The record is a 57-nucleotide sequence from Streptomyces sp. SAJ15, which matches "msiK RNA" in Rfam.
RNA sequence: CCACAUCUACCUUUACUCGGAUCGUCCGGCACGUUCCUGCCGGUGAAGGGACCCAUA
Numbered sequence: 001c002c003a004c005a006u007c008u009a010c011c012u013u014u015a016c017u018c019g020g021a022u023c024g025u026c027c028g029g030c031a032c033g034u035u036c037c038u039g040c041c042g043g044u045g046a047a048g049g050g051a052c053c054c055a056u057a
Base pairs, nucleotide, nucleotide: 010049011048012047013046014045015044026043027042028041029040030039031038
The base pairs follow the family's consensus structure, which is taken from published work. It scores 49 bits against the family's covariance model.